[Rfam]
The family of this 122-nucleotide sequence from Saimiri boliviensis is "Small nucleolar RNA SNORA26".
The snoRNA HBI-6 belong to the H/ACA family of snoRNAs, guiding the pseudouridylation of position U4522 if the 28S rRNA. HBI-6 is the human orthologue of mouse MBI-6 snoRNA.
For this family Rfam cites "RNomics: an experimental approach that identifies 201 candidates for novel, small, non-messenger RNAs in mouse" (Huttenhofer et al., EMBO J, 2001).
Taxonomically the source falls in Saimiri boliviensis (Eukaryota, Vertebrata, Mammalia, Haplorrhini).
Its family is annotated with RNA processing and nucleolus in the Gene Ontology.
Rfam 15.1 lists 1,943 matches to the family in 640 species.
The family is grouped with related families in Rfam's "SNORA27 clan".
The match comes from Rfam's covariance-model search (105 bits).
RNA sequence: GUGACCUUUUAAGGUAGACCCUGUUUUUUAAGAGGCUAACACAGAAUGGUAAAGUAAGUCUCCAUAAAACCCAGAGAAGAGACUGUGAAACUCCCCUUUGGACGCCGUAUGAAGUCAUAGCA
Dot-bracket structure: .((.(.((((...((.(.(.(..........)..).).))..)))).).))......(.((.((......((((((..(((..(....).)))..))))))........)).)).)......